[Rfam]
RNA: transfer-messenger RNA
Nucleotides: 397
Base pairs, nucleotide, nucleotide: 001393002392003391004390005389006388007387020366021365022364023363024362025361026360035353036352039348040347041346043341044340045339046338047337048067049066050065051064052063055082056081057080058079059078060077061076129150133146134145135144136143137142181217182216183215184214185213186212190207191206192205197231198230199229200228201227235263236262237261238260239259247278248277249276250275251274281315282314283313284312287309288308289307292304293303294302295333296332297331299328300327301326370386371385372384373383374382
Number, partner (000 for none) and nucleotide at each position: 001393g002392g003391g004390g005389c006388c007387g008000u009000u010000u011000a012000g013000g014000a015000u016000u017000c018000g019000a020366c021365g022364c023363c024362g025361g026360u027000c028000g029000c030000g031000a032000a033000a034000c035353u036352u037000u038000a039348g040347g041346u042000g043341c044340a045339u046338g047337c048067c049066g050065a051064g052063u053000u054000g055082g056081u057080a058079a059078c060077a061076g062000a063052a064051c065050u066049c067048g068000u069000a070000a071000a072000u073000c074000c075000a076061c077060u078059g079058u080057u081056g082055c083000a084000a085000c086000u087000u088000c089000u090000u091000a092000u093000a094000g095000u096000u097000g098000c099000c100000a101000a102000u103000g104000a105000c106000g107000a108000a109000a110000a111000c112000u113000a114000c115000g116000g117000c118000c119000a120000g121000g122000a123000a124000u125000u126000c127000g128000c129150u130000c131000u132000c133146g134145c135144u136143g137142c138000g139000u140000a141000a142137g143136c144135a145134g146133c147000c148000u149000u150129a151000g152000c153000c154000c155000u156000g157000a158000g159000c160000u161000u162000c163000u164000g165000g166000u167000a168000c169000c170000u171000u172000c173000g174000g175000g176000u177000c178000c179000a180000g181217c182216a183215a184214u185213c186212a187000c188000c189000a190207g191206g192205g193000g194000a195000u196000g197231u198230c199229u200228g201227u202000a203000a204000a205192c206191c207190c208000a209000a210000a211000g212186u213185g214184a215183u216182u217181g218000u219000c220000a221000u222000a223000u224000a225000g226000a227201a228200c229199a230198g231197a232000a233000u234000c235263g236262c237261c238260g239259u240000g241000c242000a243000g244000u245000a246000c247278g248277u249276u250275g251274u252000g253000g254000a255000c256000g257000a258000a259239g260238c261237g262236g263235c264000u265000a266000a267000a268000a269000c270000u271000u272000a273000c274251a275250c276249a277248a278247c279000u280000c281315g282314c283313c284312c285000a286000a287309a288308g289307c290000a291000c292304c293303c294302u295333g296332c297331c298000c299328u300327u301326c302294g303293g304292g305000u306000c307289g308288c309287u310000g311000a312284g313283g314282g315281u316000u317000a318000a319000c320000u321000u322000a323000a324000u325000a326301g327300a328299a329000a330000c331297g332296g333295c334000u335000a336000c337047g338046c339045a340044u341043g342000u343000a344000g345000u346041a347040c348039c349000g350000a351000c352036a353035g354000c355000g356000g357000a358000g359000u360026a361025c362024u363023g364022g365021c366020g367000g368000a369000c370386g371385g372384g373383g374382g375000u376000u377000c378000a379000a380000a381000u382374c383373c384372c385371c386370c387007c388006g389005g390004c391003u392002c393001c394000a395000c396000c397000a